[Rfam]
RNA sequence: GCAAAGGCGAAGGCGUCCACAGUGAAGGCGGAACUGCUAUCCGUAGAGGAAGCGUGCCGCCUGACGCCCCCACACUCGGCCAAGUCCAAAUUUGGCUAUGGGGCAAAGGACGUCCGGAGCCUG
Numbered sequence: 001g002c003a004a005a006g007g008c009g010a011a012g013g014c015g016u017c018c019a020c021a022g023u024g025a026a027g028g029c030g031g032a033a034c035u036g037c038u039a040u041c042c043g044u045a046g047a048g049g050a051a052g053c054g055u056g057c058c059g060c061c062u063g064a065c066g067c068c069c070c071c072a073c074a075c076u077c078g079g080c081c082a083a084g085u086c087c088a089a090a091u092u093u094g095g096c097u098a099u100g101g102g103g104c105a106a107a108g109g110a111c112g113u114c115c116g117g118a119g120c121c122u123g
Base pairs, nucleotide, nucleotide: 006120012114013113014112015111016110017109018108022065023064025062028057029056035050037048038047068103069102070101071100074097076095077094078092079091
This 123-nucleotide RNA sequence from Orthohepacivirus hominis belongs to the Rfam family "Hepatitis C virus J7880 RNA". On this family, see Mauger et al., Proc Natl Acad Sci U S A 2015: "Functionally conserved architecture of hepatitis C virus RNA genomes". Pairs were carried over by alignment from the consensus structure, which was predicted with RNAfold. The organism belongs to Orthohepacivirus, within Viruses. The sequence is in the family's curated seed alignment.